This 132-nucleotide sequence from Oleiphilus sp. HI0079 belongs to the Rfam family "TPP riboswitch aptamer (THI element)".
RNA sequence: AUCAAUCUGUCGGGGAGCUUUUGGUCGUAUAAAAGCUGAGACUGCCAGCCUAUCGAGCUAUUAGUGCAAAAGGCAGGACCCGUUGAACCUGAUAUGGUUAAUACCAGCGUAGGGAACAGUGUGCUUGCUUCG
Numbered sequence: 001a002u003c004a005a006u007c008u009g010u011c012g013g014g015g016a017g018c019u020u021u022u023g024g025u026c027g028u029a030u031a032a033a034a035g036c037u038g039a040g041a042c043u044g045c046c047a048g049c050c051u052a053u054c055g056a057g058c059u060a061u062u063a064g065u066g067c068a069a070a071a072g073g074c075a076g077g078a079c080c081c082g083u084u085g086a087a088c089c090u091g092a093u094a095u096g097g098u099u100a101a102u103a104c105c106a107g108c109g110u111a112g113g114g115a116a117c118a119g120u121g122u123g124c125u126u127g128c129u130u131c132g
Base pairs, nucleotide, nucleotide: 007119008118009117010116011082012081013080014079017036018035019034020033021032022031023030043075044074045073046072088113089112090111091110095106096105097104

Vitamin B(1) in its active form thiamin pyrophosphate (TPP) is an essential coenzyme that is synthesised by coupling of pyrimidine and thiazole moieties in bacteria. The previously detected thiamin-regulatory element, thi box was extended, resulting in a new, highly conserved RNA secondary structure, the THI element, which is widely distributed in eubacteria and also occurs in some archaea. Analysis of operon structures identified a large number of new candidate thiamin-regulated genes, mostly transporters, in various prokaryotic organisms. The match comes from Rfam's covariance-model search (73 bits).